The family of this 118-nucleotide sequence is "Bacteroidete tryptophan peptide leader RNA". The family's consensus secondary structure is taken from published work. Its family is annotated with regulation of gene expression and S-adenosylmethionine metabolic process in the Gene Ontology.
RNA sequence: UCGUUGCUAUAUUUGAAGUGAUUAUGAAUUUAAAAUUAAUUACUAAUUGGUGGCAAUCGCUUAAUUUUCAUUAGGUCGAUAACUCUUUUAGUUUACAGUAAAUAAUAAAAGGCUUGUU
Numbered sequence: 001u002c003g004u005u006g007c008u009a010u011a012u013u014u015g016a017a018g019u020g021a022u023u024a025u026g027a028a029u030u031u032a033a034a035a036u037u038a039a040u041u042a043c044u045a046a047u048u049g050g051u052g053g054c055a056a057u058c059g060c061u062u063a064a065u066u067u068u069c070a071u072u073a074g075g076u077c078g079a080u081a082a083c084u085c086u087u088u089u090a091g092u093u094u095a096c097a098g099u100a101a102a103u104a105a106u107a108a109a110a111g112g113c114u115u116g117u118u
Stems, first nucleotide, its partner, number of pairs: 036101003041095002043091004049086002052083001056080002059076003063072003
Dot-bracket structure: ...................................(((..((((((..((.(...((.(((.(((....))).)))..))..).)).))))..))...))).................